[Rfam]
RNA sequence: AGCCUUCACAGCGCCUACUCGGGCGCCUAUAUCUGUGAUGUCCCCUCGGGGACUAUGGACAUAAACGCGCGCGGAAUAAGCGGUUCGGACCCGGGGGCGGUACCCGGCGGCUCCACCACCAUCCCAUCGUUGGGGGAUCAUGGGGCCGAAACAGGAUCGACGAACGUGUAAAGGCGUCUGCUUUGUCUCGGUGAGGUACCACCGUCAUCGGUCCGAUUUGUACAGUUGCCAACGACAACCGUGCUCCGGUCGCGCUGGCUGCGUAAGCAGUCCGCAAGACCGAAACUUAAGCCGCUGCGCCUAGCCGCGUAGCGCGGGGUUCGCAGGCACCUGGCAACAGAAGCCUGCACU
Number, nucleotide and partner (000 for none) at each position: 001a000002g000003c000004c000005u000006u000007c000008a000009c000010a000011g000012c000013g000014c000015c000016u000017a000018c000019u000020c000021g000022g000023g000024c000025g000026c000027c000028u000029a000030u000031a000032u000033c000034u000035g000036u000037g000038a000039u000040g053041u052042c051043c050044c049045c000046u000047c000048g000049g044050g043051g042052a041053c040054u000055a000056u000057g188058g187059a186060c185061a184062u000063a000064a000065a000066c000067g181068c180069g177070c176071g175072c174073g000074g000075a000076a000077u000078a000079a000080g000081c166082g165083g000084u000085u163086c162087g161088g000089a000090c000091c107092c106093g105094g104095g103096g000097g000098c000099g000100g000101u000102a000103c095104c094105c093106g092107g091108c148109g147110g146111c145112u144113c143114c142115a000116c000117c000118a000119c000120c000121a000122u000123c000124c000125c000126a000127u000128c000129g000130u000131u000132g000133g000134g000135g000136g000137a000138u000139c000140a000141u000142g114143g113144g112145g111146c110147c109148g108149a000150a000151a000152c000153a000154g000155g000156a000157u000158c000159g000160a000161c087162g086163a085164a000165c082166g081167u000168g000169u000170a000171a000172a000173g000174g072175c071176g070177u069178c000179u000180g068181c067182u000183u000184u061185g060186u059187c058188u057189c204190g203191g202192u201193g000194a000195g214196g213197u000198a212199c211200c210201a192202c191203c190204g189205u000206c000207a000208u000209c000210g200211g199212u198213c196214c195215g000216a000217u000218u000219u000220g000221u000222a000223c000224a000225g000226u000227u000228g000229c000230c000231a000232a000233c000234g000235a000236c000237a000238a000239c000240c000241g000242u000243g000244c000245u000246c000247c000248g000249g000250u000251c000252g000253c000254g000255c000256u000257g000258g000259c000260u000261g000262c000263g000264u000265a000266a000267g000268c000269a000270g000271u000272c000273c000274g000275c000276a000277a000278g000279a000280c000281c000282g000283a000284a000285a000286c000287u000288u000289a000290a000291g000292c000293c000294g000295c000296u000297g000298c000299g000300c000301c000302u000303a000304g000305c000306c000307g000308c000309g000310u000311a000312g000313c000314g000315c000316g000317g332318g331319g330320u329321u000322c000323g348324c347325a346326g345327g344328c343329a320330c319331c318332u317333g000334g000335c000336a000337a000338c000339a000340g000341a000342a000343g328344c327345c326346u325347g324348c323349a000350c000351u000
RNA: Alphaproteobacteria transfer-messenger RNA
Organism: Hasllibacter halocynthiae